[Rfam]
RNA: S10-Clostridia ribosomal protein leader
Organism: Firmicutes bacterium CAG:822
RNA sequence: GGCAUGCUUAGAUGUGUGAGGUUGCCGAUACACCAGGUUAAGUUGUAAAACAAUUUAAUCUUUAAGUCGGGUUUUUACACGGAGCAAGUCUAUACUAGAUAUAGGCGA
Numbered sequence: 001g002g003c004a005u006g007c008u009u010a011g012a013u014g015u016g017u018g019a020g021g022u023u024g025c026c027g028a029u030a031c032a033c034c035a036g037g038u039u040a041a042g043u044u045g046u047a048a049a050a051c052a053a054u055u056u057a058a059u060c061u062u063u064a065a066g067u068c069g070g071g072u073u074u075u076u077a078c079a080c081g082g083a084g085c086a087a088g089u090c091u092a093u094a095c096u097a098g099a100u101a102u103a104g105g106c107g108a
Base pairs, nucleotide, nucleotide: 014080015079016078018076019075020074021073025070026069027068028067029066089108090107095104096103